This 120-nucleotide sequence from Psychromicrobium silvestre belongs to the Rfam family "SAM (S-adenosyl methionine) riboswitch aptamer". The base pairs follow the family's consensus structure, which is taken from published work. For this family Rfam cites "The aptamer core of SAM-IV riboswitches mimics the ligand-binding site of SAM-I riboswitches" (Weinberg et al., RNA, 2008). Its family is annotated with S-adenosylmethionine metabolic process and regulation of gene expression in the Gene Ontology. Lineage of the source: Bacteria > Actinomycetota > Actinomycetes > Micrococcaceae > Psychromicrobium.
[Rfam]
RNA sequence: CUUCAUGAGUUGUGGUGCCAAGCUCCGACUGGCCACACGCCAACCCCAAGUUCACGGGUGGCUCGGAUGAGGAAGCGACCCAGCGGGCCGCGAGACAAACCCGCCGGGUAAGAGCUCUCU
Number, nucleotide and partner (000 for none) at each position: 001c075002u074003u073004c072005a000006u000007g000008a000009g038010u000011u037012g036013u035014g034015g033016u032017g000018c000019c000020a000021a030022g029023c000024u000025c000026c000027g000028a000029c022030u021031g000032g016033c015034c014035a013036c012037a011038c009039g062040c061041c060042a000043a000044c058045c057046c056047c000048a000049a000050g000051u000052u000053c000054a000055c000056g046057g045058g044059u000060g041061g040062c039063u000064c000065g000066g000067a000068u000069g000070a000071g000072g004073a003074a002075g001076c000077g000078a109079c108080c107081c106082a000083g104084c103085g102086g101087g100088c000089c000090g000091c000092g000093a000094g000095a000096c000097a000098a000099a000100c087101c086102c085103g084104c083105c000106g081107g080108g079109u078110a000111a000112g000113a000114g000115c000116u000117c000118u000119c000120u000